The family of this 419-nucleotide sequence from Rhabdobacter roseus is "Bacterial RNase P class A". It is annotated as a ribozyme. It scores 282 bits against the family's covariance model. Gene Ontology terms of the family: dimeric ribonuclease P complex, ribonuclease P activity and tRNA processing. The organism belongs to Rhabdobacter, within Bacteria.
RNA sequence: AGAGUAAGUCGUUCUAUCGCUCCGGCAGAGGCCGGAGAGGAAAGUCCGGACAGCGCAGAGCACCGUACUUCCUAACGGGAAGGCAGCGGAUUGGUGACGAUAAGCUGACAGCCAGUGCCACAGAAAAAAUACCGCCUGGCAUGAUAUUUUGUGCCGGGUAAGGGUGAAAAGGUGGUGUAAGAGACCACCGUUCCGGCGGUGACGCCGGAAGCGAGGUAAACCUUACGGGCUGAAAGACCAAGUAAGUACUGAGUUUGGGGCGGCUCGUUCCAGUUUUUACUUCUAAUCGUUGUAAAACCUCAGUACGGGUAGGUCGUUAGAGGCUCCGGGUGACCGGAGUCCUAGACAAAUGAUAGAAAUUCCGGCCCUUUGCAAAAAGGACUGGAAUACAGAAUCCGGCUUACAGGCUUAUUUUUAUU
Numbered sequence: 001a002g003a004g005u006a007a008g009u010c011g012u013u014c015u016a017u018c019g020c021u022c023c024g025g026c027a028g029a030g031g032c033c034g035g036a037g038a039g040g041a042a043a044g045u046c047c048g049g050a051c052a053g054c055g056c057a058g059a060g061c062a063c064c065g066u067a068c069u070u071c072c073u074a075a076c077g078g079g080a081a082g083g084c085a086g087c088g089g090a091u092u093g094g095u096g097a098c099g100a101u102a103a104g105c106u107g108a109c110a111g112c113c114a115g116u117g118c119c120a121c122a123g124a125a126a127a128a129a130u131a132c133c134g135c136c137u138g139g140c141a142u143g144a145u146a147u148u149u150u151g152u153g154c155c156g157g158g159u160a161a162g163g164g165u166g167a168a169a170a171g172g173u174g175g176u177g178u179a180a181g182a183g184a185c186c187a188c189c190g191u192u193c194c195g196g197c198g199g200u201g202a203c204g205c206c207g208g209a210a211g212c213g214a215g216g217u218a219a220a221c222c223u224u225a226c227g228g229g230c231u232g233a234a235a236g237a238c239c240a241a242g243u244a245a246g247u248a249c250u251g252a253g254u255u256u257g258g259g260g261c262g263g264c265u266c267g268u269u270c271c272a273g274u275u276u277u278u279a280c281u282u283c284u285a286a287u288c289g290u291u292g293u294a295a296a297a298c299c300u301c302a303g304u305a306c307g308g309g310u311a312g313g314u315c316g317u318u319a320g321a322g323g324c325u326c327c328g329g330g331u332g333a334c335c336g337g338a339g340u341c342c343u344a345g346a347c348a349a350a351u352g353a354u355a356g357a358a359a360u361u362c363c364g365g366c367c368c369u370u371u372g373c374a375a376a377a378a379g380g381a382c383u384g385g386a387a388u389a390c391a392g393a394a395u396c397c398g399g400c401u402u403a404c405a406g407g408c409u410u411a412u413u414u415u416u417a418u419u
Stems, first nucleotide, its partner, number of pairs: 001415010011404001012358007020037007042402003046399005051232004063228005068082005083109001084107004110223002115221002117217003132163002134159011171189006190212001191210008236315004246306008322341008